Shown here is a 228-nucleotide part of an RNA from Methylobrevis albus, a member of the family "Bacterial large subunit ribosomal RNA". Rfam links the family to the GO terms structural constituent of ribosome and ribosome. The match comes from Rfam's covariance-model search (2721 bits). Pairs were carried over by alignment from the consensus structure, which is taken from published work. NCBI's taxonomy places the organism under Bacteria, Pseudomonadati, Pseudomonadota, Hyphomicrobiales, Methylobrevis.

[Rfam]
RNA sequence: GACUUAGUUUAACGAGCAAGCUUAAGCCGGUAGGUGUAGGCGUAGCGAAAGCGAGUCUGAAUAGGGCGUCAAGUUCGUUGAAUUAGACCCGAAACGAGGUGAUCUAGCCAUGACCAGGCUGAAGGUGCGGUAACACGCACUGAAGGGCCGAACCCACGUCUGUUGAAAAAGCCGGGGAUGAGUUGUGGCUAGGGGUGAAAGGCCAAUCAAACCUCGAAAUAGCUGGUU
Numbered sequence: 001g002a003c004u005u006a007g008u009u010u011a012a013c014g015a016g017c018a019a020g021c022u023u024a025a026g027c028c029g030g031u032a033g034g035u036g037u038a039g040g041c042g043u044a045g046c047g048a049a050a051g052c053g054a055g056u057c058u059g060a061a062u063a064g065g066g067c068g069u070c071a072a073g074u075u076c077g078u079u080g081a082a083u084u085a086g087a088c089c090c091g092a093a094a095c096g097a098g099g100u101g102a103u104c105u106a107g108c109c110a111u112g113a114c115c116a117g118g119c120u121g122a123a124g125g126u127g128c129g130g131u132a133a134c135a136c137g138c139a140c141u142g143a144a145g146g147g148c149c150g151a152a153c154c155c156a157c158g159u160c161u162g163u164u165g166a167a168a169a170a171g172c173c174g175g176g177g178a179u180g181a182g183u184u185g186u187g188g189c190u191a192g193g194g195g196u197g198a199a200a201g202g203c204c205a206a207u208c209a210a211a212c213c214u215c216g217a218a219a220u221a222g223c224u225g226g227u228u
Base pairs, nucleotide, nucleotide: 005085006084007083008082009081010080011079012078013077014076015075016074017073020041021040022039023038026035027034028033045052046051055067056066057065058064088226089225091223095216096215097214098213099212100211104192105191106190107189108188109187110186111185112184113183114182115180117149118148119147120146124141125140126139127138128137129136153177154176155175157174158173160171161170194204195203196202